[Rfam]
RNA sequence: CAGCAGACUGGAGGCUGUAAUUCAGGUGCGGUAGCUAU
Numbered sequence: 001c002a003g004c005a006g007a008c009u010g011g012a013g014g015c016u017g018u019a020a021u022u023c024a025g026g027u028g029c030g031g032u033a034g035c036u037a038u
Stems, first nucleotide, its partner, number of pairs: 008025005